Shown here is a 112-nucleotide sequence from Clostridium sp. MSTE9, a member of the family "TPP riboswitch aptamer (THI element)". It scores 57 bits against the family's covariance model. Its family is annotated with thiamine pyrophosphate binding in the Gene Ontology. Vitamin B(1) in its active form thiamin pyrophosphate (TPP) is an essential coenzyme that is synthesised by coupling of pyrimidine and thiazole moieties in bacteria.
RNA sequence: GAACUGAAUACGGGGCGCUGCGUAUACGCGGCUGAGAUGAGGCGGAUUGACGCCUAUGUCCCUUUGACCUGAUCUGGAUAAUGCCAGCGUAGGAAACUUUUGCAGCACAGCA
Dot-bracket structure: .....(((...(((..(((((......))))).......((((........))))....))).....((((..((((......))))..))))....)))............
Numbered sequence: 001g002a003a004c005u006g007a008a009u010a011c012g013g014g015g016c017g018c019u020g021c022g023u024a025u026a027c028g029c030g031g032c033u034g035a036g037a038u039g040a041g042g043c044g045g046a047u048u049g050a051c052g053c054c055u056a057u058g059u060c061c062c063u064u065u066g067a068c069c070u071g072a073u074c075u076g077g078a079u080a081a082u083g084c085c086a087g088c089g090u091a092g093g094a095a096a097c098u099u100u101u102g103c104a105g106c107a108c109a110g111c112a
Stems, first nucleotide, its partner, number of pairs: 006100003012062003017032005040055004068093004074087004